[Rfam]
RNA sequence: UGGCGGGGGAGCACUACAACCGGAGGAGCCUGCGGUUUAAUUGGACUCAACGCCGGACAUCUCACCAGCUCCGACAGUAUGCAGUGACAGUCAGUGUGAUGAGCUUACUUGAGCUACUGAGAGGAGGUGCAUGGCCGCCGUCAGCUCGUACCGUGAGGCGUCCUGUUAAGUCAGGCAACGAGCGAGACCCGCAUUCUUAAUUGCCAGCAUGGGCCUUUGGCCUGAUGGGUACAUUAGGGGGACUGCCAGUGCUAAACUGGAGGAAGGAACGGGCAACGGUAGGUCAGUAUGCCCCGAAUGAGCUGGGCUACACGCGGGCUACAAUGGUCGAGACAGUGGGAUGCAACCCCGAGAGGGGGCGCUAAUCUCCGAAACUCGAUCGUAGUUCGGAUUGUGGGCUGAAACUCGCCCACAUGAAGCUGGAUUCGGUAGUAAUCGCCUCUCAGAAGGAGGCGGUGAAUACGUCCCUGCUCCUUGCACACACCGCCCGUCAAAGCACCCGAGUGAGGUCCGGAUGAGGCCCGGAAACGGGUCGAAUCUGGGCUUCGCAAGGGGGCUUAAGUCGUAACAAGGUAGCCGUAGGGGAAUCUGCGGCUGGAU
Numbered sequence: 001u002g003g004c005g006g007g008g009g010a011g012c013a014c015u016a017c018a019a020c021c022g023g024a025g026g027a028g029c030c031u032g033c034g035g036u037u038u039a040a041u042u043g044g045a046c047u048c049a050a051c052g053c054c055g056g057a058c059a060u061c062u063c064a065c066c067a068g069c070u071c072c073g074a075c076a077g078u079a080u081g082c083a084g085u086g087a088c089a090g091u092c093a094g095u096g097u098g099a100u101g102a103g104c105u106u107a108c109u110u111g112a113g114c115u116a117c118u119g120a121g122a123g124g125a126g127g128u129g130c131a132u133g134g135c136c137g138c139c140g141u142c143a144g145c146u147c148g149u150a151c152c153g154u155g156a157g158g159c160g161u162c163c164u165g166u167u168a169a170g171u172c173a174g175g176c177a178a179c180g181a182g183c184g185a186g187a188c189c190c191g192c193a194u195u196c197u198u199a200a201u202u203g204c205c206a207g208c209a210u211g212g213g214c215c216u217u218u219g220g221c222c223u224g225a226u227g228g229g230u231a232c233a234u235u236a237g238g239g240g241g242a243c244u245g246c247c248a249g250u251g252c253u254a255a256a257c258u259g260g261a262g263g264a265a266g267g268a269a270c271g272g273g274c275a276a277c278g279g280u281a282g283g284u285c286a287g288u289a290u291g292c293c294c295c296g297a298a299u300g301a302g303c304u305g306g307g308c309u310a311c312a313c314g315c316g317g318g319c320u321a322c323a324a325u326g327g328u329c330g331a332g333a334c335a336g337u338g339g340g341a342u343g344c345a346a347c348c349c350c351g352a353g354a355g356g357g358g359g360c361g362c363u364a365a366u367c368u369c370c371g372a373a374a375c376u377c378g379a380u381c382g383u384a385g386u387u388c389g390g391a392u393u394g395u396g397g398g399c400u401g402a403a404a405c406u407c408g409c410c411c412a413c414a415u416g417a418a419g420c421u422g423g424a425u426u427c428g429g430u431a432g433u434a435a436u437c438g439c440c441u442c443u444c445a446g447a448a449g450g451a452g453g454c455g456g457u458g459a460a461u462a463c464g465u466c467c468c469u470g471c472u473c474c475u476u477g478c479a480c481a482c483a484c485c486g487c488c489c490g491u492c493a494a495a496g497c498a499c500c501c502g503a504g505u506g507a508g509g510u511c512c513g514g515a516u517g518a519g520g521c522c523c524g525g526a527a528a529c530g531g532g533u534c535g536a537a538u539c540u541g542g543g544c545u546u547c548g549c550a551a552g553g554g555g556g557c558u559u560a561a562g563u564c565g566u567a568a569c570a571a572g573g574u575a576g577c578c579g580u581a582g583g584g585g586a587a588u589c590u591g592c593g594g595c596u597g598g599a600u
Stems, first nucleotide, its partner, number of pairs: 001481002003478003007475007016465002020429005025322001027320008035311002041056004065306007075119004081114002089109003093105003123295002126293004132289002134284003137280004144183006151158002162175004189272003194240007204229002208227003211223004243263002246260005326381007338369003343362002347358004388419001393414007435457008484572001486569001489565002492562001494559004499554003504549013519534006574597010
This 600-nucleotide part of an RNA from Haloarchaeobius iranensis belongs to the Rfam family "Archaeal small subunit ribosomal RNA".
Lineage of the source: Archaea > Methanobacteriati > Methanobacteriota > Halobacteriales > Haloarchaeobius.
For this family Rfam cites "Crystal structure of the ribosome at 5.5 A resolution" (Yusupov et al., Science, 2001).
The family is grouped with related families in Rfam's "SSU clan".